[Rfam]
RNA sequence: UUAAUAAUGAUGAUUGGAAAGAGUAAAAAACAGUUGGCUUCAAAGAGAGUGAGAGUUUGGUGAAAUCUCAUAAGUUCAAGUUUUUGAAAAUCAUCCAUGAAUUGCAGCCUGAAAUUUUAUUAGUGUAAGGUGUGCCGGUUAAUAAGCCGUUAUAUAAUGAAGUGAUUGUGUAUAUGCUUUAGUAGUUGGAUUGUAAGCUUUACGUUGUCUAACUGAUUUUUUAGUUGCUAAUAUUUUUGCUUUUAUUUAGUGGAUAUUGGUGCUACAAAGUUGAUGGACAUUUCUAAGCUGUAUAGCGAAUAGUUCUAACAUAAGCUGACAAUUCUGUUCAUAGCAUAUUACAAAUAAAUUGGGUGGUACCGCGAAAAUAGCCUCGUCCCUAUG
Numbered sequence: 001u002u003a004a005u006a007a008u009g010a011u012g013a014u015u016g017g018a019a020a021g022a023g024u025a026a027a028a029a030a031c032a033g034u035u036g037g038c039u040u041c042a043a044a045g046a047g048a049g050u051g052a053g054a055g056u057u058u059g060g061u062g063a064a065a066u067c068u069c070a071u072a073a074g075u076u077c078a079a080g081u082u083u084u085u086g087a088a089a090a091u092c093a094u095c096c097a098u099g100a101a102u103u104g105c106a107g108c109c110u111g112a113a114a115u116u117u118u119a120u121u122a123g124u125g126u127a128a129g130g131u132g133u134g135c136c137g138g139u140u141a142a143u144a145a146g147c148c149g150u151u152a153u154a155u156a157a158u159g160a161a162g163u164g165a166u167u168g169u170g171u172a173u174a175u176g177c178u179u180u181a182g183u184a185g186u187u188g189g190a191u192u193g194u195a196a197g198c199u200u201u202a203c204g205u206u207g208u209c210u211a212a213c214u215g216a217u218u219u220u221u222u223a224g225u226u227g228c229u230a231a232u233a234u235u236u237u238u239g240c241u242u243u244u245a246u247u248u249a250g251u252g253g254a255u256a257u258u259g260g261u262g263c264u265a266c267a268a269a270g271u272u273g274a275u276g277g278a279c280a281u282u283u284c285u286a287a288g289c290u291g292u293a294u295a296g297c298g299a300a301u302a303g304u305u306c307u308a309a310c311a312u313a314a315g316c317u318g319a320c321a322a323u324u325c326u327g328u329u330c331a332u333a334g335c336a337u338a339u340u341a342c343a344a345a346u347a348a349a350u351u352g353g354g355u356g357g358u359a360c361c362g363c364g365a366a367a368a369u370a371g372c373c374u375c376g377u378c379c380c381u382a383u384g
Base pairs, nucleotide, nucleotide: 007102008101015097016096017095018094026085027084028083029082030081031080038074039073040072049071050070051069052068053067054066105134106133107131108130109129110128136149137148138147165346166345167344352380353379354378362377363376364375365374